Manganese Mn2+ riboswitch aptamer (yybP-ykoY): a 174-nucleotide sequence from Noviherbaspirillum sedimenti. This RNA was originally discovered in E. coli during a large scale screen and was named SraF. The family was later found to exist upstream of related families of protein genes in many bacteria, including the the yybP and ykoK genes in B. subtilis. It scores 104 bits against the family's covariance model. NCBI's taxonomy places the organism under Bacteria, Betaproteobacteria, Burkholderiales, Oxalobacteraceae, Noviherbaspirillum.

RNA sequence: UACACAGUCAUUGGGGAGUAGCCGCUCUUCCCCCGAAGAGGCUUAUGUCAACACACUUGACCCGCAGGUCAUGGCAUAAGCGGUUCUGCAGCUUGGCAAGACUUUUGACCACAACGCUUCCGUGCAGGCCGGGGGAAGUGUCGUGGUCAUUCGUUUAAUGCCCGGCUGUGGAAU
Numbered sequence: 001u002a003c004a005c006a007g008u009c010a011u012u013g014g015g016g017a018g019u020a021g022c023c024g025c026u027c028u029u030c031c032c033c034c035g036a037a038g039a040g041g042c043u044u045a046u047g048u049c050a051a052c053a054c055a056c057u058u059g060a061c062c063c064g065c066a067g068g069u070c071a072u073g074g075c076a077u078a079a080g081c082g083g084u085u086c087u088g089c090a091g092c093u094u095g096g097c098a099a100g101a102c103u104u105u106u107g108a109c110c111a112c113a114a115c116g117c118u119u120c121c122g123u124g125c126a127g128g129c130c131g132g133g134g135g136a137a138g139u140g141u142c143g144u145g146g147u148c149a150u151u152c153g154u155u156u157a158a159u160g161c162c163c164g165g166c167u168g169u170g171g172a173a174u
Stems, first nucleotide, its partner, number of pairs: 026039003041081010058071005083174008